[Rfam]
RNA sequence: GUGUGUUUUAAUGAAGAUUUGUUUCUAAACUCUGCUGAGGAAAUAAGUUUGAUGCUGACACAC
Numbered sequence: 001g002u003g004u005g006u007u008u009u010a011a012u013g014a015a016g017a018u019u020u021g022u023u024u025c026u027a028a029a030c031u032c033u034g035c036u037g038a039g040g041a042a043a044u045a046a047g048u049u050u051g052a053u054g055c056u057g058a059c060a061c062a063c
Stems, first nucleotide, its partner, number of pairs: 001063005016049010030039003
The record is a 63-nucleotide RNA from Sparus aurata, which matches "Selenocysteine insertion sequence 1" in Rfam. Taxonomically the source falls in Sparus (Eukaryota, Euteleostomi, Neopterygii, Euacanthomorphacea). The match comes from Rfam's covariance-model search (41 bits). Rfam's curators write: The incorporation of selenocysteine into a protein sequence is directed by an in-frame UGA codon (usually a stop codon) within the coding region of the mRNA. Selenoprotein mRNAs contain a conserved secondary structure in the 3' UTR that is required for the distinction of UGA stop from UGA selenocysteine. The selenocysteine insertion sequence (SECIS) is around 60 nt in length and adopts a hairpin structure which is sufficiently well-defined and conserved to act as a computational screen for selenoprotein genes. The family has 61 seed sequences and 3,793 matches in Rfam 15.1.